[Rfam]
RNA sequence: CCAUGUGUAGGGCAAACCCGGCGAAAGCCGGCGACGCAAAGCUAUAGGAUCGUCAGACAUCUACGACAGCCAGCUGCAACA
Number, nucleotide and partner (000 for none) at each position: 001c000002c000003a000004u000005g000006u000007g000008u000009a000010g000011g000012g037013c036014a000015a000016a000017c000018c031019c030020g029021g028022c027023g000024a000025a000026a000027g022028c021029c020030g019031g018032c000033g000034a000035c000036g013037c012038a000039a000040a075041g074042c073043u072044a000045u000046a000047g071048g070049a000050u066051c065052g000053u000054c000055a000056g061057a000058c000059a000060u000061c056062u000063a000064c000065g051066a050067c000068a000069g000070c048071c047072a043073g042074c041075u040076g000077c000078a000079a000080c000081a000
Rfam assigns this 81-nucleotide RNA sequence from Oscillibacter hominis to the family "c-di-GMP-I riboswitch aptamer". Rfam links the family to the GO term cyclic-di-GMP binding.